Small Cajal body specific RNA 16: a 173-nucleotide RNA sequence from Prolemur simus. Rfam classes the family as a small Cajal body RNA. Rfam describes the family as follows. scaRNAs are a specific class of small nuclear RNAs which localise to the Cajal bodies and guide the modification of RNA polymerase II transcribed spliceosomal RNAs U1, U2, U4, U5 and U12.

RNA sequence: AUGGUCCAAGAGGGGUCUCCUGUGCUGUUGACCCUGCCCAGUUGUGGGAGCAGCCCGGUCCCAGGCAGCCCGGCCCUGACCUCAAGUAAGUUCCCAGAAGUCUUUCCUGGGUUUGAACAAGUGUGAACAUUCUAGGAGCAGUUUGAUGAUCAUGUAUGAUACUACAAACAGGA
Numbered sequence: 001a002u003g004g005u006c007c008a009a010g011a012g013g014g015g016u017c018u019c020c021u022g023u024g025c026u027g028u029u030g031a032c033c034c035u036g037c038c039c040a041g042u043u044g045u046g047g048g049a050g051c052a053g054c055c056c057g058g059u060c061c062c063a064g065g066c067a068g069c070c071c072g073g074c075c076c077u078g079a080c081c082u083c084a085a086g087u088a089a090g091u092u093c094c095c096a097g098a099a100g101u102c103u104u105u106c107c108u109g110g111g112u113u114u115g116a117a118c119a120a121g122u123g124u125g126a127a128c129a130u131u132c133u134a135g136g137a138g139c140a141g142u143u144u145g146a147u148g149a150u151c152a153u154g155u156a157u158g159a160u161a162c163u164a165c166a167a168a169c170a171g172g173a
Base pairs, nucleotide, nucleotide: 003081004080005079006078010074015070017068018067019065020064021063022062024061027054028053029052030051033048034047093111094110095109097106098105099104112168113167114166115165116160118158119157124152125151126150128148129147130146131145134143135142